[Rfam]
RNA sequence: CCGGUUCCGGUUCACGCUCUCGAAUGGCGAGGGCGACCCGGCGACC
Numbered sequence: 001c002c003g004g005u006u007c008c009g010g011u012u013c014a015c016g017c018u019c020u021c022g023a024a025u026g027g028c029g030a031g032g033g034c035g036a037c038c039c040g041g042c043g044a045c046c
Stems, first nucleotide, its partner, number of pairs: 003046003007041004015035008
RNA: L31-Actinobacteria ribosomal protein leader